[Rfam]
Nucleotides: 074
Stems, first nucleotide, its partner, number of pairs: 001073007010026004028044005050066005
Number, partner (000 for none) and nucleotide at each position: 001073g002072g003071c004070c005069c006068c007067g008000u009000a010026g011025c012024u013023c014000a015000g016000c017000a018000g019000g020000a021000u022000a023013g024012a025011g026010c027000a028044u029043c030042a031041g032040a033000u034000u035000c036000c037000u038000a039000a040032u041031c042030u043029g044028a045000g046000g047000g048000c049000c050066a051065c052064u053063g054062g055000u056000u057000c058000g059000a060000a061000u062054c063053c064052a065051g066050u067007c068006g069005g070004g071003g072002u073001c074000a
tRNA: a 74-nucleotide RNA sequence from Sphingomonas parapaucimobilis. The base pairs follow the family's consensus structure, which is taken from published work. The match comes from Rfam's covariance-model search (70 bits). For this family Rfam cites "The tertiary structure of tRNA and the development of the genetic code" (Hou, Trends Biochem Sci, 1993).